[Rfam]
RNA sequence: UGUCAAGCAGUCCCGGCGUCGUUUCGGCGAGCAGAUUUCUUUUGCCUAGCGAUAGGUGAAAGAGAAUG
Numbered sequence: 001u002g003u004c005a006a007g008c009a010g011u012c013c014c015g016g017c018g019u020c021g022u023u024u025c026g027g028c029g030a031g032c033a034g035a036u037u038u039c040u041u042u043u044g045c046c047u048a049g050c051g052a053u054a055g056g057u058g059a060a061a062g063a064g065a066a067u068g
Stems, first nucleotide, its partner, number of pairs: 011063002017058004022054001024052003029047001031045005
RNA: S-element
Organism: Chelatococcus asaccharovorans